A member of the RNA family "Plastid-atpF group II-D1 intron" from Pyrus ussuriensis x Pyrus communis, 53 nucleotides long. Lineage of the source: Eukaryota > Spermatophyta > Magnoliopsida > Rosaceae > Pyrus. Its family is annotated with Group II intron splicing in the Gene Ontology. Rfam's curators write: Plastid atpF is a non-coding RNA (ncRNA) recognised in plastids.
[Rfam]
RNA sequence: AUUUUUUUUUUCAAUAUAAAACACUCAUGUUGAUAAAAUGAUUUGAGGUGAUC
Numbered sequence: 001a002u003u004u005u006u007u008u009u010u011u012c013a014a015u016a017u018a019a020a021a022c023a024c025u026c027a028u029g030u031u032g033a034u035a036a037a038a039u040g041a042u043u044u045g046a047g048g049u050g051a052u053c
Base pairs, nucleotide, nucleotide: 011033012032013031014030015029016028017027